[Rfam]
RNA sequence: UCUCCCGCUUUACCUCCCUGAGCGGGUGCCUUAUUAAGUUAAGGCAUUUUCACCCCCGGCAUUUCUCCCCCUUUGGCCGGGGGUUUUUAUU
Numbered sequence: 001u002c003u004c005c006c007g008c009u010u011u012a013c014c015u016c017c018c019u020g021a022g023c024g025g026g027u028g029c030c031u032u033a034u035u036a037a038g039u040u041a042a043g044g045c046a047u048u049u050u051c052a053c054c055c056c057c058g059g060c061a062u063u064u065c066u067c068c069c070c071c072u073u074u075g076g077c078c079g080g081g082g083g084u085u086u087u088u089a090u091u
Base pairs, nucleotide, nucleotide: 004026005025006024007023008022009021028045029044030043031042032041033040053083054082055081056080057079058078059077060076
The record is a 91-nucleotide RNA sequence from a Rhodocyclaceae bacterium, which matches "Burkholderia RNA 7 (anti-hemB)" in Rfam. On this family, see Weinberg et al., Nucleic Acids Res 2007: "Identification of 22 candidate structured RNAs in bacteria using the CMfinder comparative genomics pipeline". Rfam's curators write: This RNA motif was identified by computational search in b-proteobacteria Burkholderia. Co-purified with Hfq, expression confirmed by Northern blot. The family's RNA type in Rfam is small RNA. The family has 26 seed sequences and 479 matches in Rfam 15.1. NCBI's taxonomy places the organism under Bacteria, Pseudomonadati, Pseudomonadota, Rhodocyclales, Rhodocyclaceae.